[Rfam]
RNA sequence: AUACUUACCUGGCGUGGAGGUCAACCGUGAUCAACUAGGCGGUUCCUCCAGGGCGAGGCCCGGUCAUUGCACACCGACUGGGUUGACCCCUGCGAGUAUCCCUAAUGUGGAUACCUCGGACGCAUAAUUUUUGGUAGCUGGGACUGCGUUCGCGCCGUCCCUU
Numbered sequence: 001a002u003a004c005u006u007a008c009c010u011g012g013c014g015u016g017g018a019g020g021u022c023a024a025c026c027g028u029g030a031u032c033a034a035c036u037a038g039g040c041g042g043u044u045c046c047u048c049c050a051g052g053g054c055g056a057g058g059c060c061c062g063g064u065c066a067u068u069g070c071a072c073a074c075c076g077a078c079u080g081g082g083u084u085g086a087c088c089c090c091u092g093c094g095a096g097u098a099u100c101c102c103u104a105a106u107g108u109g110g111a112u113a114c115c116u117c118g119g120a121c122g123c124a125u126a127a128u129u130u131u132u133g134g135u136a137g138c139u140g141g142g143a144c145u146g147c148g149u150u151c152g153c154g155c156c157g158u159c160c161c162u163u
Stems, first nucleotide, its partner, number of pairs: 012123004016049005024043005050091004055087001057084003061080005093118003096114003100110002140161004146155003
The record is a 163-nucleotide RNA from Cinara cedri, which matches "U1 spliceosomal RNA" in Rfam. The family is grouped with related families in Rfam's "U1 clan". The match comes from Rfam's covariance-model search (142 bits).